[Rfam]
RNA sequence: AUCGCUUAUCGGCAUUAUGGCUAAGAUCAAGUGUAGUAUAUGUUCUUAUCAGUUUAAUAUCUGAUACGUCCCUUAUCUGGGGACCAUAUAUUAAAUGGAUUUUUAGAACAUGCAGAUUGAAGAAGAGCUUACUCUGUCCACUCCAUGCAUCGACCUGGUAUUGCAGUACCCCCAGGGCCGGUGCACCCAAA
Numbered sequence: 001a002u003c004g005c006u007u008a009u010c011g012g013c014a015u016u017a018u019g020g021c022u023a024a025g026a027u028c029a030a031g032u033g034u035a036g037u038a039u040a041u042g043u044u045c046u047u048a049u050c051a052g053u054u055u056a057a058u059a060u061c062u063g064a065u066a067c068g069u070c071c072c073u074u075a076u077c078u079g080g081g082g083a084c085c086a087u088a089u090a091u092u093a094a095a096u097g098g099a100u101u102u103u104u105a106g107a108a109c110a111u112g113c114a115g116a117u118u119g120a121a122g123a124a125g126a127g128c129u130u131a132c133u134c135u136g137u138c139c140a141c142u143c144c145a146u147g148c149a150u151c152g153a154c155c156u157g158g159u160a161u162u163g164c165a166g167u168a169c170c171c172c173c174a175g176g177g178c179c180g181g182u183g184c185a186c187c188c189a190a191a
Stems, first nucleotide, its partner, number of pairs: 007026001009024001011022003047066006068084006112144001114142002119137001124135004147184006154176005
The record is a 191-nucleotide sequence from Aquarana catesbeiana, which matches "U2 spliceosomal RNA" in Rfam. The organism belongs to Aquarana, within Eukaryota. Rfam classes the family as a spliceosomal small nuclear RNA. Gene Ontology terms of the family: pre-mRNA branch point binding, mRNA branch site recognition and U2 snRNP. The literature on the family includes a 2001 paper in RNA by Newby and Greenbaum, "A conserved pseudouridine modification in eukaryotic U2 snRNA induces a change in branch-site architecture". The base pairs follow the family's consensus structure, which is taken from published work.